[Rfam]
RNA sequence: AUGCCUUAAACUAAUGAGUAAGGAAAAUAACGAGCCUAGGUAGCCCUAGGUUCCACAGCUUAUUAGUCUGUGAGGAAUUUCUCUAAGGGGACAGGUUGCCCUUGGUGUGGCCCAUCUUACUUUGGUGGGAUGCCCAUGACUGGUGAUCUUCCCU
Numbered sequence: 001a002u003g004c005c006u007u008a009a010a011c012u013a014a015u016g017a018g019u020a021a022g023g024a025a026a027a028u029a030a031c032g033a034g035c036c037u038a039g040g041u042a043g044c045c046c047u048a049g050g051u052u053c054c055a056c057a058g059c060u061u062a063u064u065a066g067u068c069u070g071u072g073a074g075g076a077a078u079u080u081c082u083c084u085a086a087g088g089g090g091a092c093a094g095g096u097u098g099c100c101c102u103u104g105g106u107g108u109g110g111c112c113c114a115u116c117u118u119a120c121u122u123u124g125g126u127g128g129g130a131u132g133c134c135c136a137u138g139a140c141u142g143g144u145g146a147u148c149u150u151c152c153c154u
Stems, first nucleotide, its partner, number of pairs: 004023005032053008054072005086154005093149007102138001105135001107133003112128005
The record is a 154-nucleotide RNA from Strongylocentrotus purpuratus, which matches "U12 minor spliceosomal RNA" in Rfam.
The source organism's lineage runs through Eukaryota, Opisthokonta, Deuterostomia, Camarodonta and Strongylocentrotus.
The pairing is the family consensus, mapped onto this sequence.
Its Rfam clan is "U2 clan".